[Rfam]
The family of this 151-nucleotide RNA sequence from Pelodiscus sinensis is "U12 minor spliceosomal RNA". Gene Ontology terms of the family: mRNA branch site recognition, pre-mRNA branch point binding and U12 snRNP. The organism belongs to Pelodiscus, within Eukaryota. Clan: U2 clan. The literature on the family includes a 1997 paper in Trends Biochem Sci by Tarn and Steitz, "Pre-mRNA splicing: the discovery of a new spliceosome doubles the challenge". The pairing is the family consensus, mapped onto this sequence. It scores 129 bits against the family's covariance model. The family's RNA type in Rfam is spliceosomal small nuclear RNA.
RNA sequence: AUGCCUUAAACUUAUGAGUAAGGAAAAUAACGAUCCGGGGUGACGCCCGGGUCCUCACUGCUAAUGUGAGAGGAAUUUUUGCACGGGCACAGGUCGCCCCCAGGGUGACUCGCCUACUUCGCGAGAUGCCCGGGUGCGUGGGCUAGUUCCG
Numbered sequence: 001a002u003g004c005c006u007u008a009a010a011c012u013u014a015u016g017a018g019u020a021a022g023g024a025a026a027a028u029a030a031c032g033a034u035c036c037g038g039g040g041u042g043a044c045g046c047c048c049g050g051g052u053c054c055u056c057a058c059u060g061c062u063a064a065u066g067u068g069a070g071a072g073g074a075a076u077u078u079u080u081g082c083a084c085g086g087g088c089a090c091a092g093g094u095c096g097c098c099c100c101c102a103g104g105g106u107g108a109c110u111c112g113c114c115u116a117c118u119u120c121g122c123g124a125g126a127u128g129c130c131c132g133g134g135u136g137c138g139u140g141g142g143c144u145a146g147u148u149c150c151g
Base pairs, nucleotide, nucleotide: 004023005022006021007020008019032053033052034051035050036049037048038047039046054070055069056068057067058066084151085150086149087148091144092143094141095140096139097138100134101133103131104130105129106128107127109125110124111123112122113121